[Rfam]
RNA sequence: GGAUGUGAGGGCGAUCUGGUUGCGACAUCUGUCACCCCAUUGAUCGCCAGGGUUGAUGCGGCUGAUCUGGCUGACUAGGCGGGUGUCCCCUUCCUCCCUCACCGCUCCAUGUGCGUCCCUCCCGAAGCUGCGCGCUUGGUCAAAGAGGACGACCAUCCCCGCUAGAGGAGGACCGGUCUUCGGUCAAGGGUAUACGAGUAGCUGCGCUCCCCUGCUAGAACCUCCAAAAAAGAAAAAAAAAAAACAAAAACUGUGUGUGUGACUUGAGACCUUACAUAUUAAAAUCUGAUCACUGGGUAAGAUAUAAUGCUUU
Numbered sequence: 001g002g003a004u005g006u007g008a009g010g011g012c013g014a015u016c017u018g019g020u021u022g023c024g025a026c027a028u029c030u031g032u033c034a035c036c037c038c039a040u041u042g043a044u045c046g047c048c049a050g051g052g053u054u055g056a057u058g059c060g061g062c063u064g065a066u067c068u069g070g071c072u073g074a075c076u077a078g079g080c081g082g083g084u085g086u087c088c089c090c091u092u093c094c095u096c097c098c099u100c101a102c103c104g105c106u107c108c109a110u111g112u113g114c115g116u117c118c119c120u121c122c123c124g125a126a127g128c129u130g131c132g133c134g135c136u137u138g139g140u141c142a143a144a145g146a147g148g149a150c151g152a153c154c155a156u157c158c159c160c161g162c163u164a165g166a167g168g169a170g171g172a173c174c175g176g177u178c179u180u181c182g183g184u185c186a187a188g189g190g191u192a193u194a195c196g197a198g199u200a201g202c203u204g205c206g207c208u209c210c211c212c213u214g215c216u217a218g219a220a221c222c223u224c225c226a227a228a229a230a231a232g233a234a235a236a237a238a239a240a241a242a243a244a245c246a247a248a249a250a251c252u253g254u255g256u257g258u259g260u261g262a263c264u265u266g267a268g269a270c271c272u273u274a275c276a277u278a279u280u281a282a283a284a285u286c287u288g289a290u291c292a293c294u295g296g297g298u299a300a301g302a303u304a305u306a307a308u309g310c311u312u313u
Base pairs, nucleotide, nucleotide: 001108002107003106005102006101007100008099009098010097011096013093014092018090019089024087025086026085027084028083029082030081031080032079033078036073037070038069039068042067043066044065045064046062047061048060116171117170118168119167120166121165122139123138124137125136127135128134141161147158148157149156201264203262207259211257213255214254215253223248282313283312284311287307289305290304291297
Annotation
7SK RNA: a 313-nucleotide RNA sequence from Bos mutus. It is annotated as a non-coding RNA gene. Rfam 15.1 lists 49,373 matches to the family in 668 species. From the family's description: 7SK was discovered as an abundant small nuclear RNA in the mid-70s but a possible function has only recently been suggested. Two independent studies have found that 7SK RNA binds the CDK9/cyclin T complex (known as elongation factor P-TEFb). P-TEFb activates transcription by phosphorylating the C-terminal domain of RNA polymerase II. This process is negatively regulated by the 7SK RNP. The secondary structure of 7SK RNA shown here was proposed by Wasserman and Steitz on the basis of chemical modification and enzymatic cleavage experiments. This family contains a number of annotated pseudogenes and 7SK derived repeats. The threshold is artificially high to minimise the pseudogene count. The base pairs follow the family's consensus structure, which is taken from published work.